[Rfam]
RNA sequence: UGGCGGCACGGAGAUGGCAUGCCUCCGCGAACCGCCCUCGGGCUGAUGAUGCCUACGUAUCC
Dot-bracket structure: .........[[[[..(((((..]]]].......(((....))).....))))).........
RNA: Fluoride riboswitch aptamer (crcB RNA motif)
Organism: Luteibacter anthropi